[Rfam]
A member of the RNA family "Small nucleolar RNA SNORD89" from Pleuronectes platessa, 113 nucleotides long. The family's RNA type in Rfam is C/D-box small nucleolar RNA. A search with the family's covariance model found it, with a score of 48 bits. Its family is annotated with RNA processing and nucleolus in the Gene Ontology. The organism belongs to Pleuronectes, within Eukaryota. A reference for the family is Huttenhofer et al. (2001), "RNomics: an experimental approach that identifies 201 candidates for novel, small, non-messenger RNAs in mouse", EMBO J. snoRNA HBII-289 belongs to the family of C/D snoRNAs. It is the human orthologue of the mouse MBII-289 and has no identified RNA target. The family's consensus secondary structure was predicted with RNAalifold.

RNA sequence: CCUGGGAAAUGAUGUAAACAAAAGGCCGAAUUGUAGUGCCCCUGCCAGGCAGUGUGUUCUCAGAGUGGGGGUGCCUUGACAAAGACUAACCGAAGCACUUAUCUGAUCCCAGA
Numbered sequence: 001c002c003u004g005g006g007a008a009a010u011g012a013u014g015u016a017a018a019c020a021a022a023a024g025g026c027c028g029a030a031u032u033g034u035a036g037u038g039c040c041c042c043u044g045c046c047a048g049g050c051a052g053u054g055u056g057u058u059c060u061c062a063g064a065g066u067g068g069g070g071g072u073g074c075c076u077u078g079a080c081a082a083a084g085a086c087u088a089a090c091c092g093a094a095g096c097a098c099u100u101a102u103c104u105g106a107u108c109c110c111a112g113a
Base pairs, nucleotide, nucleotide: 002112003111004110005109006108007107014103025034026033035099036098037097038096042092044090047087048086052074053073055071057069058068059067075084076083